[Rfam]
RNA: ZMP/ZTP riboswitch aptamer (pfl RNA motif)
RNA sequence: GGGAUACAGGACUGGCGGAUUAGUGGGAAACCACGUGGACUGUAUCCGAAAAAAAGCCGACCGCCUGGGCAUC
Numbered sequence: 001g002g003g004a005u006a007c008a009g010g011a012c013u014g015g016c017g018g019a020u021u022a023g024u025g026g027g028a029a030a031c032c033a034c035g036u037g038g039a040c041u042g043u044a045u046c047c048g049a050a051a052a053a054a055a056g057c058c059g060a061c062c063g064c065c066u067g068g069g070c071a072u073c
Stems, first nucleotide, its partner, number of pairs: 002047008012037001014065005023034004054072001056070003